This 73-nucleotide sequence from Phoenicopterus ruber belongs to the Rfam family "Small nucleolar RNA SNORD24". For this family Rfam cites "U24, a novel intron-encoded small nucleolar RNA with two 12 nt long, phylogenetically conserved complementarities to 28S rRNA" (Qu et al., Nucleic Acids Res, 1995). Gene Ontology terms of the family: RNA processing and nucleolus. The organism belongs to Phoenicopterus ruber, within Eukaryota. The base pairs follow the family's consensus structure, which was predicted with PFOLD.

RNA sequence: CGCAGAUGAUGUGAAAGAAUAUUUGCUAUCUGAGUGGUAGUGCUGACAUAUCACCACCAAGAUCACUGAUGCG
Numbered sequence: 001c002g003c004a005g006a007u008g009a010u011g012u013g014a015a016a017g018a019a020u021a022u023u024u025g026c027u028a029u030c031u032g033a034g035u036g037g038u039a040g041u042g043c044u045g046a047c048a049u050a051u052c053a054c055c056a057c058c059a060a061g062a063u064c065a066c067u068g069a070u071g072c073g
Base pairs, nucleotide, nucleotide: 001073002072003071004070